[Rfam]
RNA: SraG RNA
Organism: Limnobaculum parvum
RNA sequence: CUUCUAACUGCAUCCUCGCGACUAAUGAAAGUCCUGACUUAACAAAGCAUUAGUCAUGAAAAACAACCGCUACCCCAUCAAUACUUUCAUUAGCCGCGCGAACCUCUGCACCAGAAGGCCCAAAAACUAGUGUUCUAUAAUACUGCUAUUUAUUGUCUAAUCCUAGAAGAAAGGGGCCACAUUUGGCCCCUUUC
Numbered sequence: 001c002u003u004c005u006a007a008c009u010g011c012a013u014c015c016u017c018g019c020g021a022c023u024a025a026u027g028a029a030a031g032u033c034c035u036g037a038c039u040u041a042a043c044a045a046a047g048c049a050u051u052a053g054u055c056a057u058g059a060a061a062a063a064c065a066a067c068c069g070c071u072a073c074c075c076c077a078u079c080a081a082u083a084c085u086u087u088c089a090u091u092a093g094c095c096g097c098g099c100g101a102a103c104c105u106c107u108g109c110a111c112c113a114g115a116a117g118g119c120c121c122a123a124a125a126a127c128u129a130g131u132g133u134u135c136u137a138u139a140a141u142a143c144u145g146c147u148a149u150u151u152a153u154u155g156u157c158u159a160a161u162c163c164u165a166g167a168a169g170a171a172a173g174g175g176g177c178c179a180c181a182u183u184u185g186g187c188c189c190c191u192u193u194c
Stems, first nucleotide, its partner, number of pairs: 001117004010109003017100004022093011124147001173189003177185001